[Rfam]
RNA: mir-15 microRNA precursor family
RNA sequence: CUAGGUGAUGGUGUAGCAGCACAGAAUGGUUUGUGGUGAUACAGAGAUGCAGGCCAUGAUGUGCUGCAGCAUCAAUUCCUGG
Dot-bracket structure: (((((.......((.((((((((..((((((((((............))))))))))..)))))))).)).......)))))